The record is a 58-nucleotide RNA from Alteromonas confluentis, which matches "Pseudomonas sRNA P26" in Rfam. By type it is a non-coding RNA gene. A reference for the family is Livny et al. (2006), "Identification of 17 Pseudomonas aeruginosa sRNAs and prediction of sRNA-encoding genes in 10 diverse pathogens using the bioinformatic tool sRNAPredict2", Nucleic Acids Res. Rfam's curators write: This small RNA (sRNA) was computationally identified in the genome of the opportunistic pathogen Pseudomonas aeruginosa and its expression verified by northern blot analysis. Taxonomically the source falls in Alteromonas (Bacteria, Pseudomonadota, Alteromonadales, Alteromonadaceae). The base pairs follow the family's consensus structure, which was predicted with RNAalifold. It scores 40 bits against the family's covariance model.
[Rfam]
RNA sequence: UUGUUUAGAUUACCUGCCUGAAACGGCAAGGCUGGUGGUUAAUAUUGACCACCAGCCU
Dot-bracket structure: ...............(((......)))..((((((((((........)))))))))).